[Rfam]
RNA sequence: CAAUAGCAAUGAUGGUCAAAGCUCAUGAAUAUUGUAGGUUUUUUGUCCUGCAAUUUUCUAGGGUU
Numbered sequence: 001c002a003a004u005a006g007c008a009a010u011g012a013u014g015g016u017c018a019a020a021g022c023u024c025a026u027g028a029a030u031a032u033u034g035u036a037g038g039u040u041u042u043u044u045g046u047c048c049u050g051c052a053a054u055u056u057u058c059u060a061g062g063g064u065u
Stems, first nucleotide, its partner, number of pairs: 020065005033052006
RNA: Streptococcus sRNA Spd-sr37